[Rfam]
RNA sequence: CCGCUCGAGGGGCGCUGCAGCGGUCAAACCGCGAGGCUCGAGAGGUUCGUCUACCACUGUCAACGGCGCCCAUUCGAU
Numbered sequence: 001c002c003g004c005u006c007g008a009g010g011g012g013c014g015c016u017g018c019a020g021c022g023g024u025c026a027a028a029c030c031g032c033g034a035g036g037c038u039c040g041a042g043a044g045g046u047u048c049g050u051c052u053a054c055c056a057c058u059g060u061c062a063a064c065g066g067c068g069c070c071c072a073u074u075c076g077a078u
Base pairs, nucleotide, nucleotide: 002044004042005041006040007039008038021031022030023029024028